[Rfam]
RNA sequence: UGAGAAAAGCAGAAGCACCCGCUUCUCGCCUUGGGAACCAUGUUGCCGGGCUAAAGAUGAGUUGAACCACAUCAGUUCUUGGUGUGGACAGCGGGUGGCUUAGGCCGCCCGCUAUUUUUCUGUUUA
Numbered sequence: 001u002g003a004g005a006a007a008a009g010c011a012g013a014a015g016c017a018c019c020c021g022c023u024u025c026u027c028g029c030c031u032u033g034g035g036a037a038c039c040a041u042g043u044u045g046c047c048g049g050g051c052u053a054a055a056g057a058u059g060a061g062u063u064g065a066a067c068c069a070c071a072u073c074a075g076u077u078c079u080u081g082g083u084g085u086g087g088a089c090a091g092c093g094g095g096u097g098g099c100u101u102a103g104g105c106c107g108c109c110c111g112c113u114a115u116u117u118u119u120c121u122g123u124u125u126a
Stems, first nucleotide, its partner, number of pairs: 011026006028051003034046001036044003090113010
Notes
Rfam assigns this 126-nucleotide RNA from Furfurilactobacillus siliginis to the family "Ribosomal protein L20 leader". By type it is a cis-regulatory leader. About the family: This family is a putative r-protein leader autoregulatory structure found in B. subtilis and other low-GC Gram-positive bacteria. It is located in the 5' untranslated regions of mRNAs encoding initiation factor 3 followed by ribosomal proteins L35 and L20 (infC-rpmI-rplT). The base pairs follow the family's consensus structure, which was predicted with CMfinder. Lineage of the source: Bacteria > Bacillati > Lactobacillales > Lactobacillaceae > Furfurilactobacillus.